Bacterial RNase P class A: a 403-nucleotide RNA sequence from Nocardioides mangrovicus. Lineage of the source: Bacteria > Actinomycetota > Actinomycetes > Nocardioidaceae > Nocardioides.
RNA sequence: UGGGCUGGCCGGGCGACCGCGGCGCACACCCCCACGGGGGCGGACGUCGAGGAAGGUCCGGGCUCCACAGGGCAGGGCGGUGGGUAACACCCACCCGGGGAAACCCGCGGGACAGUGCCACAGAGAACAGACCGCCACUGCCUCACGGCAGCGGUCAGGGUGAAACGGUGGUGUAAGAGACCACCAGCGCGGCGGGCGACCGUCGCGGCUCGGCAAACCCCGCCUGGAGCAAGGUCAAGAAGGACCCUCCCCGGAGGGUCCGCGCGGACGAGGCGGCCCGCCUCAUCGUCCGCGGGUGGACUGCAGGAGGCGGCCGGCAACGGUCGUCGUAGAUGGAUGGUCGCCCACCGGGCGCCGGCAACGGCCCCGGGGACAGAACCCGGCCUACAGGCCAGCCCGUCCG
Numbered sequence: 001u002g003g004g005c006u007g008g009c010c011g012g013g014c015g016a017c018c019g020c021g022g023c024g025c026a027c028a029c030c031c032c033c034a035c036g037g038g039g040g041c042g043g044a045c046g047u048c049g050a051g052g053a054a055g056g057u058c059c060g061g062g063c064u065c066c067a068c069a070g071g072g073c074a075g076g077g078c079g080g081u082g083g084g085u086a087a088c089a090c091c092c093a094c095c096c097g098g099g100g101a102a103a104c105c106c107g108c109g110g111g112a113c114a115g116u117g118c119c120a121c122a123g124a125g126a127a128c129a130g131a132c133c134g135c136c137a138c139u140g141c142c143u144c145a146c147g148g149c150a151g152c153g154g155u156c157a158g159g160g161u162g163a164a165a166c167g168g169u170g171g172u173g174u175a176a177g178a179g180a181c182c183a184c185c186a187g188c189g190c191g192g193c194g195g196g197c198g199a200c201c202g203u204c205g206c207g208g209c210u211c212g213g214c215a216a217a218c219c220c221c222g223c224c225u226g227g228a229g230c231a232a233g234g235u236c237a238a239g240a241a242g243g244a245c246c247c248u249c250c251c252c253g254g255a256g257g258g259u260c261c262g263c264g265c266g267g268a269c270g271a272g273g274c275g276g277c278c279c280g281c282c283u284c285a286u287c288g289u290c291c292g293c294g295g296g297u298g299g300a301c302u303g304c305a306g307g308a309g310g311c312g313g314c315c316g317g318c319a320a321c322g323g324u325c326g327u328c329g330u331a332g333a334u335g336g337a338u339g340g341u342c343g344c345c346c347a348c349c350g351g352g353c354g355c356c357g358g359c360a361a362c363g364g365c366c367c368c369g370g371g372g373a374c375a376g377a378a379c380c381c382g383g384c385c386u387a388c389a390g391g392c393c394a395g396c397c398c399g400u401c402c403g
Base pairs, nucleotide, nucleotide: 001399002398003397004396005395006394007393008392009391010390011388012345013344014343015342016341017340018339020049021048022047023046024045027042054386055385056384058383059382060381061380062379063229064228065227066226070279071278072277073276075225076224077223078222079221080094081093082092083091084090095109096107097106098105099104110220111219115218116217117214118213119212132159133158134155135154136153138151139150140149141148142147167185168184169183170182171181172180187209188207189206190205191204192203193202194201195200233302234301235300236299243290244289245288270284271283272282273281274280309328310327311326312325313324314323315322316321